L31-Actinobacteria ribosomal protein leader: a 47-nucleotide RNA from Bifidobacterium commune. It is annotated as a cis-regulatory leader.
RNA sequence: ACUGUUCCGGUUCACGUCCGGCCAUCGGGGCUAGGCGACCCGGGUCA
Numbered sequence: 001a002c003u004g005u006u007c008c009g010g011u012u013c014a015c016g017u018c019c020g021g022c023c024a025u026c027g028g029g030g031c032u033a034g035g036c037g038a039c040c041c042g043g044g045u046c047a
Base pairs, nucleotide, nucleotide: 003047004046007043008042009041010040015037016036017035018034020032021031022030023029

Notes:
Pairs were carried over by alignment from the consensus structure, which is taken from published work.